[Rfam]
RNA: Histidine operon leader
Organism: Escherichia coli
RNA sequence: CCAUCAUCACCAUCAUCCUGACUAGUCUUUCAGGCGAUGUGUGCUGGAAGACGUUCAGAUCUUCCAGUGGUGCAUGAACGCAUGAGAAAGCCCCCGGAAGAUCACCUUCCGGGGGCUUUAUAU
Numbered sequence: 001c002c003a004u005c006a007u008c009a010c011c012a013u014c015a016u017c018c019u020g021a022c023u024a025g026u027c028u029u030u031c032a033g034g035c036g037a038u039g040u041g042u043g044c045u046g047g048a049a050g051a052c053g054u055u056c057a058g059a060u061c062u063u064c065c066a067g068u069g070g071u072g073c074a075u076g077a078a079c080g081c082a083u084g085a086g087a088a089a090g091c092c093c094c095c096g097g098a099a100g101a102u103c104a105c106c107u108u109c110c111g112g113g114g115g116c117u118u119u120a121u122a123u
Base pairs, nucleotide, nucleotide: 008043009042010041011039012038013037014036017034018033019032020031021030044067045066046065047064048063049062050061051060085121087119088118089117090116091115092114093113094112095111096110097109098108099107100106